Description
The record is a 91-nucleotide RNA from Catellatospora methionotrophica, which matches "ZMP/ZTP riboswitch aptamer (pfl RNA motif)" in Rfam. Taxonomically the source falls in Catellatospora (Bacteria, Bacillati, Actinomycetes, Micromonosporales).
[Rfam]
RNA sequence: CCGGUGGGCCGUGACUGGCGCGCUGGGAUGGGUCACCAUCGGGAAGCGGCUCCGUCGUCGUGACGCUGUGCCGAGCGCCUGGGCCUCUUCC
Numbered sequence: 001c002c003g004g005u006g007g008g009c010c011g012u013g014a015c016u017g018g019c020g021c022g023c024u025g026g027g028a029u030g031g032g033u034c035a036c037c038a039u040c041g042g043g044a045a046g047c048g049g050c051u052c053c054g055u056c057g058u059c060g061u062g063a064c065g066c067u068g069u070g071c072c073g074a075g076c077g078c079c080u081g082g083g084c085c086u087c088u089u090c091c
Stems, first nucleotide, its partner, number of pairs: 003055001006052007015043002017079005028039004068086001070084003